[Rfam]
Description: The record is a 137-nucleotide RNA sequence from Heterocephalus glaber, which matches "Small nucleolar RNA SNORA48" in Rfam. The family is grouped with related families in Rfam's "SNORA48 clan".

RNA sequence: UGUCUCUGAUCUGGAUAGGACAGCAUUGAAUUGGUAGUUCUCUCAUCUCAUGUCUACCAAGGGCAAAACAAUUCCUUGCUCAUCCCAGCUUGAUUUUUGGUCUAUGGCUGUAUCUGGUUCAUGCCUUAGACACAUGG
Numbered sequence: 001u002g003u004c005u006c007u008g009a010u011c012u013g014g015a016u017a018g019g020a021c022a023g024c025a026u027u028g029a030a031u032u033g034g035u036a037g038u039u040c041u042c043u044c045a046u047c048u049c050a051u052g053u054c055u056a057c058c059a060a061g062g063g064c065a066a067a068a069c070a071a072u073u074c075c076u077u078g079c080u081c082a083u084c085c086c087a088g089c090u091u092g093a094u095u096u097u098u099g100g101u102c103u104a105u106g107g108c109u110g111u112a113u114c115u116g117g118u119u120c121a122u123g124c125c126u127u128a129g130a131c132a133c134a135u136g137g
Base pairs, nucleotide, nucleotide: 001065002064003063004062005061007059008058013054014053018049019048022041023040025038026037027036077132078131080129082127092125094123098121099120100119102117103116104115106113
The snoRNA ACA 48 has been identified to guide pseudouridylation of the residue U3797 in the 28S rRNA subunit. By type it is an H/ACA-box small nucleolar RNA. On this family, see Ofengand and Bakin, J Mol Biol 1997: "Mapping to nucleotide resolution of pseudouridine residues in large subunit ribosomal RNAs from representative eukaryotes, prokaryotes, archaebacteria, mitochondria and chloroplasts". Pairs were carried over by alignment from the consensus structure, which was predicted with RNAalifold.